[Rfam]
RNA: MIR390 microRNA precursor family
Nucleotides: 121
Stems, first nucleotide, its partner, number of pairs: 010112001016106009026096008035087001
Number, partner (000 for none) and nucleotide at each position: 001000u002000g003000g004000a005000a006000g007000a008000a009000u010112c011000u012000u013000u014000a015000a016106a017105g018104c019103u020102c021101a022100g023099g024098a025000g026096g027095g028094a029093u030092a031091g032090c033089g034000c035087c036000a037000u038000g039000g040000g041000c042000u043000u044000u045000c046000a047000g048000a049000g050000g051000g052000c053000u054000g055000g056000c057000u058000a059000c060000c061000u062000c063000u064000g065000u066000u067000a068000a069000g070000u071000u072000u073000u074000c075000u076000a077000u078000u079000u080000c081000u082000u083000c084000u085000g086000u087035g088000a089033c090032g091031c092030u093029a094028u095027c096026u097000a098024u099023c100022c101021u102020g103019a104018g105017u106016u107000u108000u109000a110000u111000a112010g113000c114000u115000u116000c117000u118000u119000c120000c121000u